The family of this 54-nucleotide RNA from Oncorhynchus tshawytscha is "UnaL2 LINE 3' element". About the family: The eel long interspersed element (LINE) UnaL2 and its partner short interspersed element (SINE) share a conserved 3' tail containing a stem-loop that is critical for their retrotransposition. The literature on the family includes a 2004 paper in RNA by Baba et al., "Solution structure of an RNA stem-loop derived from the 3' conserved region of eel LINE UnaL2".
Nucleotides: 054
Stems, first nucleotide, its partner, number of pairs: 013043001014041003020036002023033003
Number, partner (000 for none) and nucleotide at each position: 001000a002000u003000u004000a005000c006000u007000a008000c009000u010000c011000a012000c013043u014041g015040u016039a017000a018000g019000u020036c021035g022000c023033u024032c025031u026000g027000g028000a029000u030000a031025a032024g033023a034000a035021c036020g037000u038000c039016u040015g041014c042000u043013a044000a045000a046000u047000g048000g049000c050000a051000u052000a053000a054000a
Pairs were carried over by alignment from the consensus structure, which is taken from published work. The organism belongs to Oncorhynchus, within Eukaryota. By type it is a cis-regulatory element.